The record is a 173-nucleotide RNA from Blautia sp. An249, which matches "Lysine riboswitch aptamer" in Rfam.

[Rfam]
RNA sequence: GGGAAAGAUAGAGGAUGCGUUUUUUAUCAGUAGACGGCUGGAUAUGCAGGGAUAGGAGAAGGCCGGUGAAAGGAAAAAACGCCGAAAGGAUAAGACUCCUGCGGUUUUAUUGCUUGGGCAUACAGUGAAGAACUGUAUGACUGUCAUCAAAACGAUGGUGCGCUAUCUGAAGG
Numbered sequence: 001g002g003g004a005a006a007g008a009u010a011g012a013g014g015a016u017g018c019g020u021u022u023u024u025u026a027u028c029a030g031u032a033g034a035c036g037g038c039u040g041g042a043u044a045u046g047c048a049g050g051g052a053u054a055g056g057a058g059a060a061g062g063c064c065g066g067u068g069a070a071a072g073g074a075a076a077a078a079a080c081g082c083c084g085a086a087a088g089g090a091u092a093a094g095a096c097u098c099c100u101g102c103g104g105u106u107u108u109a110u111u112g113c114u115u116g117g118g119c120a121u122a123c124a125g126u127g128a129a130g131a132a133c134u135g136u137a138u139g140a141c142u143g144u145c146a147u148c149a150a151a152a153c154g155a156u157g158g159u160g161c162g163c164u165a166u167c168u169g170a171a172g173g
Stems, first nucleotide, its partner, number of pairs: 006168006017082009033067001035065005086115003089111008116142002119139008144158005